[Rfam]
RNA sequence: AUGCUUGAAAUCCCGGCCCGGGCGGUCUAAAUUCACCCUGUCCUUCGGGACUAUGGUGAUAAACGCGCAGAUAAUAAGCGGAUCGGACCCGGGGGCGGUACCCGGCGGCUCCACCAAAAGCCCUUGUUGGGGGAUAAUGGGGCCGAAAUAGGAUCGACGGACGUCUAAAACUGUAGCUUUUACUCGGUGAGGUACCACCGUUAUCGGUCCGUAAAGCAUAGUUGCCAACAACAAUCAUGCUCCGGUCGCCGUUGCUGCGUAAGCAGUCACGGUAACCGAUUUCUUAAGUCCUUGCCCCUAGCAGGGUAAGGCGGGGUUCGCAGGCACCUGGCAACAGAAGCCUGCACU
Numbered sequence: 001a002u003g004c005u006u007g008a009a010a011u012c013c014c015g016g017c018c019c020g021g022g023c024g025g026u027c028u029a030a031a032u033u034c035a036c037c038c039u040g041u042c043c044u045u046c047g048g049g050a051c052u053a054u055g056g057u058g059a060u061a062a063a064c065g066c067g068c069a070g071a072u073a074a075u076a077a078g079c080g081g082a083u084c085g086g087a088c089c090c091g092g093g094g095g096c097g098g099u100a101c102c103c104g105g106c107g108g109c110u111c112c113a114c115c116a117a118a119a120g121c122c123c124u125u126g127u128u129g130g131g132g133g134a135u136a137a138u139g140g141g142g143c144c145g146a147a148a149u150a151g152g153a154u155c156g157a158c159g160g161a162c163g164u165c166u167a168a169a170a171c172u173g174u175a176g177c178u179u180u181u182a183c184u185c186g187g188u189g190a191g192g193u194a195c196c197a198c199c200g201u202u203a204u205c206g207g208u209c210c211g212u213a214a215a216g217c218a219u220a221g222u223u224g225c226c227a228a229c230a231a232c233a234a235u236c237a238u239g240c241u242c243c244g245g246u247c248g249c250c251g252u253u254g255c256u257g258c259g260u261a262a263g264c265a266g267u268c269a270c271g272g273u274a275a276c277c278g279a280u281u282u283c284u285u286a287a288g289u290c291c292u293u294g295c296c297c298c299u300a301g302c303a304g305g306g307u308a309a310g311g312c313g314g315g316g317u318u319c320g321c322a323g324g325c326a327c328c329u330g331g332c333a334a335c336a337g338a339a340g341c342c343u344g345c346a347c348u
Stems, first nucleotide, its partner, number of pairs: 040051004055184005065177002067174004079163002083160003089105005106145007185200004191210002194208003314329004320345006

Background
This 348-nucleotide sequence from Profundibacterium mesophilum belongs to the Rfam family "Alphaproteobacteria transfer-messenger RNA". A search with the family's covariance model found it, with a score of 291 bits. Lineage of the source: Bacteria > Rhodobacterales > Roseobacteraceae > Profundibacterium > Profundibacterium mesophilum. Gene Ontology term of the family: RNA catabolic process. On this family, see Williams and Bartel, RNA 1996: "Phylogenetic analysis of tmRNA secondary structure". The family is grouped with related families in Rfam's "tRNA clan". By type it is a non-coding RNA gene. Pairs were carried over by alignment from the consensus structure, which is taken from published work.